[Rfam]
RNA sequence: CCACCCGUUCACACGGGUGGUUUUGAUUUAAGUUGUAGUCUUAAUCUAGUUAGACAGCACUUUAUCGGUAAUAACUAUAUUAAACAGUAGUUAU
Numbered sequence: 001c002c003a004c005c006c007g008u009u010c011a012c013a014c015g016g017g018u019g020g021u022u023u024u025g026a027u028u029u030a031a032g033u034u035g036u037a038g039u040c041u042u043a044a045u046c047u048a049g050u051u052a053g054a055c056a057g058c059a060c061u062u063u064a065u066c067g068g069u070a071a072u073a074a075c076u077a078u079a080u081u082a083a084a085c086a087g088u089a090g091u092u093a094u
Base pairs, nucleotide, nucleotide: 007069008068011065013063015061016060019058021056023054024053028049029048030047033044034043035042071094072093073092074091075090076089077088078087
The family of this 94-nucleotide RNA from Staphylococcus aureus is "Staphylococcus sRNA sau-27". The base pairs follow the family's consensus structure, which was predicted with mfold. Lineage of the source: Bacteria > Bacillati > Bacillota > Staphylococcaceae > Staphylococcus aureus. The literature on the family includes a 2010 paper in J Mol Med (Berl) by Abu-Qatouseh et al., "Identification of differentially expressed small non-protein-coding RNAs in Staphylococcus aureus displaying both the normal and the small-colony variant phenotype".